[Rfam]
RNA sequence: CGCGCCAAGGAGCGUUGCAGCGGGCCAUUGGCGCCCGUCAGGCUUGGCGUCCAGACUUUCCGUGCAACGACGCUCACCUGAU
Dot-bracket structure: .(((((((............(((((.......)))))......)))))))................................
This 82-nucleotide sequence from Ottowia flava belongs to the Rfam family "SAH (S-adenosyl-L-homocysteine) riboswitch aptamer". The source organism's lineage runs through Bacteria, Pseudomonadati, Pseudomonadota, Burkholderiales and Ottowia. The match comes from Rfam's covariance-model search (62 bits).